RNA sequence: AUAAGAAGUCCGCUUAAUUUCCGUUAAGGAAAGCGGGGGAACCAACAACUGGGAACCAGUGUAACAAUCGGUACUAGUUAUGGGGUGAAUCCUGUUCCAGGUGCAUAAAUGCAUCCAUGCAGGUAGGGCAACUCUCACUGCCCGAAUCCGACAGCUAACCUCGUAAGCGUAUGGAGAGAGGAUGA
Numbered sequence: 001a002u003a004a005g006a007a008g009u010c011c012g013c014u015u016a017a018u019u020u021c022c023g024u025u026a027a028g029g030a031a032a033g034c035g036g037g038g039g040a041a042c043c044a045a046c047a048a049c050u051g052g053g054a055a056c057c058a059g060u061g062u063a064a065c066a067a068u069c070g071g072u073a074c075u076a077g078u079u080a081u082g083g084g085g086u087g088a089a090u091c092c093u094g095u096u097c098c099a100g101g102u103g104c105a106u107a108a109a110u111g112c113a114u115c116c117a118u119g120c121a122g123g124u125a126g127g128g129c130a131a132c133u134c135u136c137a138c139u140g141c142c143c144g145a146a147u148c149c150g151a152c153a154g155c156u157a158a159c160c161u162c163g164u165a166a167g168c169g170u171a172u173g174g175a176g177a178g179a180g181g182a183u184g185a
Stems, first nucleotide, its partner, number of pairs: 011169004018032005033164006043082002083149003091123004126143004

Rfam assigns this 185-nucleotide RNA sequence from Paenibacillus sp. FSL H7-0737 to the family "c-di-AMP riboswitch aptamer (ydaO/yuaA leader)".
Lineage of the source: Bacteria > Bacillati > Bacillota > Caryophanales > Paenibacillus.